[Rfam]
RNA sequence: GGCAGAGUAGAUAACUUGCGUCAAGUGCCAAGGGAUGGGACGUUGCCCUUGGACGAAAAGCUGUAUUGCUUGCGGUAAGUUGUCGCGUUCGCUGUC
Numbered sequence: 001g002g003c004a005g006a007g008u009a010g011a012u013a014a015c016u017u018g019c020g021u022c023a024a025g026u027g028c029c030a031a032g033g034g035a036u037g038g039g040a041c042g043u044u045g046c047c048c049u050u051g052g053a054c055g056a057a058a059a060g061c062u063g064u065a066u067u068g069c070u071u072g073c074g075g076u077a078a079g080u081u082g083u084c085g086c087g088u089u090c091g092c093u094g095u096c
Stems, first nucleotide, its partner, number of pairs: 001096005010084009019074003025054002028052007038090005058071004
Description: Shown here is a 96-nucleotide RNA from Tepidanaerobacter acetatoxydans, a member of the family "THF (Tetrahydrofolate) riboswitch aptamer". Lineage of the source: Bacteria > Bacillati > Tepidanaerobacteraceae > Tepidanaerobacter > Tepidanaerobacter acetatoxydans. About the family: Tetrahydrofolate (THF) riboswitch was first reported for Ames et al. as an RNA motif in 5' untranslated (5'-UTR)regions of folate transport and biosynthesis genes in Firmicutes genomes. Rfam 15.1 lists 747 matches to the family in 747 species. A reference for the family is Trausch and Batey (2014), "A disconnect between high-affinity binding and efficient regulation by antifolates and purines in the tetrahydrofolate riboswitch", Chem Biol.